[Rfam]
RNA sequence: GAUGGCAAAUGAUGUUAAAAACUUAAAUUUUUUAAUCCUUACGCUGAGUUCUGUGAAGACUAAAAACUUCACUUAUUGUCUGAUGCCUUC
Numbered sequence: 001g002a003u004g005g006c007a008a009a010u011g012a013u014g015u016u017a018a019a020a021a022c023u024u025a026a027a028u029u030u031u032u033u034a035a036u037c038c039u040u041a042c043g044c045u046g047a048g049u050u051c052u053g054u055g056a057a058g059a060c061u062a063a064a065a066a067c068u069u070c071a072c073u074u075a076u077u078g079u080c081u082g083a084u085g086c087c088u089u090c
Base pairs, nucleotide, nucleotide: 004087005086006085007084

This 90-nucleotide RNA from Glycine max belongs to the Rfam family "Small nucleolar RNA R16". Gene Ontology terms of the family: RNA processing and nucleolus. The match comes from Rfam's covariance-model search (49 bits). The organism belongs to Glycine subgen. Soja, within Eukaryota.